The record is an 88-nucleotide sequence from Punica granatum, which matches "Small nucleolar RNA U54" in Rfam. From the family's description: U54 is a C/D box small nucleolar RNA, which acts as a methylation guide for 18S ribosomal RNA in plants. Lineage of the source: Eukaryota > Euphyllophyta > Magnoliopsida > Lythraceae > Punica. The family is grouped with related families in Rfam's "U54 clan". Its family is annotated with RNA processing and nucleolus in the Gene Ontology. It scores 41 bits against the family's covariance model.
[Rfam]
RNA sequence: GGCUCUGUGAUCGGCGAGCCUUGUAACGAGGCGAUAUACGCUAUUCCGAUUCAAAGCAUGAGCUUGAUAACCUCAUUCAAUGAGAGCC
Numbered sequence: 001g002g003c004u005c006u007g008u009g010a011u012c013g014g015c016g017a018g019c020c021u022u023g024u025a026a027c028g029a030g031g032c033g034a035u036a037u038a039c040g041c042u043a044u045u046c047c048g049a050u051u052c053a054a055a056g057c058a059u060g061a062g063c064u065u066g067a068u069a070a071c072c073u074c075a076u077u078c079a080a081u082g083a084g085a086g087c088c
Base pairs, nucleotide, nucleotide: 001088002087003086004085005084